The family of this 85-nucleotide RNA sequence from Furovirus tritici is "Tymovirus/Pomovirus/Furovirus tRNA-like 3' UTR element".
The family's RNA type in Rfam is cis-regulatory element.
The literature on the family includes a 2004 paper in Virology by Matsuda and Dreher, "The tRNA-like structure of Turnip yellow mosaic virus RNA is a 3'-translational enhancer".
The source organism's lineage runs through Viruses, Riboviria, Virgaviridae, Furovirus and Furovirus tritici.
About the family: This family represents a tRNA-like structure found in the 3' UTR of Tymoviruses, Pomoviruses and Furovirus.
Its family is annotated with regulation of translation in the Gene Ontology.
RNA sequence: AGGUGCGACUGGUGGUCGCGGCUGCUAUCACACAGCAGCUAGGAGGGGUUCAAUUCCCCCCCCAUCCGGAGGGUUAUCCGGCCCA
Numbered sequence: 001a002g003g004u005g006c007g008a009c010u011g012g013u014g015g016u017c018g019c020g021g022c023u024g025c026u027a028u029c030a031c032a033c034a035g036c037a038g039c040u041a042g043g044a045g046g047g048g049u050u051c052a053a054u055u056c057c058c059c060c061c062c063c064a065u066c067c068g069g070a071g072g073g074u075u076a077u078c079c080g081g082c083c084c085a
Stems, first nucleotide, its partner, number of pairs: 005019005012051001020040007045059004060073003066081005